The record is a 189-nucleotide sequence from Streptomyces sp. YIM 130001, which matches "Streptomyces RNA 1601" in Rfam. From the family's description: Identified by deep sequencing of transcriptome at the end of exponential growth phase. Appears longer on northern blot than sequencing transcript. Streptomyces specific. The family's RNA type in Rfam is small RNA. The match comes from Rfam's covariance-model search (148 bits). The organism belongs to Streptomyces, within Bacteria.

RNA sequence: AUCGACCGGUCGGACACCCCUGUGCCCGGCCCACAAGUGGAGGCUCCGAUCUCCCACCUGGCCGCUCGUGAGAGUGGCGGGUCACCGGUCAGGCAGCUGCUUCGAGCGGCAGCCCUCUGCGCCCCGCGUGAUCGCGGCGGUGUUCCGGUACCGAUGGAGCCCCGCAUGUGAUCGUCCGGGGCAUUUUUC
Number, nucleotide and partner (000 for none) at each position: 001a000002u000003c000004g090005a089006c088007c087008g086009g085010u000011c000012g027013g026014a000015c000016a000017c000018c000019c000020c000021u000022g000023u000024g000025c000026c013027c012028g083029g082030c081031c080032c079033a000034c060035a059036a000037g057038u056039g055040g054041a052042g051043g000044c000045u000046c000047c000048g000049a000050u000051c042052u041053c000054c040055c039056a038057c037058c000059u035060g034061g078062c077063c076064g075065c074066u073067c072068g000069u000070g000071a000072g067073a066074g065075u064076g063077g062078c061079g032080g031081g030082u029083c028084a000085c009086c008087g007088g006089u005090c004091a000092g114093g113094c112095a000096g110097c109098u108099g107100c106101u105102u000103c000104g000105a101106g100107c099108g098109g097110c096111a000112g094113c093114c092115c000116u000117c000118u000119g000120c000121g182122c181123c180124c179125c178126g177127c174128g173129u000130g000131a000132u000133c170134g169135c168136g000137g165138c164139g163140g162141u000142g160143u159144u158145c157146c156147g000148g000149u000150a000151c000152c000153g000154a000155u000156g146157g145158a144159g143160c142161c000162c140163c139164g138165c137166a000167u000168g135169u134170g133171a000172u000173c128174g127175u000176c000177c126178g125179g124180g123181g122182c121183a000184u000185u000186u000187u000188u000189c000